RNA sequence: AAGUGAAAUCAUGGGUUAGUAUCUUUUUGCACUGACUUGAAAUACUAGAUUAAAACAAAGUAAAAGUUAUUUCACUU
Numbered sequence: 001a002a003g004u005g006a007a008a009u010c011a012u013g014g015g016u017u018a019g020u021a022u023c024u025u026u027u028u029g030c031a032c033u034g035a036c037u038u039g040a041a042a043u044a045c046u047a048g049a050u051u052a053a054a055a056c057a058a059a060g061u062a063a064a065a066g067u068u069a070u071u072u073c074a075c076u077u
Stems, first nucleotide, its partner, number of pairs: 001077009
Background: A member of the RNA family "Small nucleolar RNA SNORD2" from Rhinopithecus roxellana, 77 nucleotides long. It scores 38 bits against the family's covariance model. It is annotated as a C/D-box small nucleolar RNA.